[Rfam]
RNA sequence: GGCCUACAUGACUGUAGGUUGCUCUGGAUAAGAGUGUCUGCUAAAUUACUCAAA
Numbered sequence: 001g002g003c004c005u006a007c008a009u010g011a012c013u014g015u016a017g018g019u020u021g022c023u024c025u026g027g028a029u030a031a032g033a034g035u036g037u038c039u040g041c042u043a044a045a046u047u048a049c050u051c052a053a054a
Stems, first nucleotide, its partner, number of pairs: 013043001014041003020036006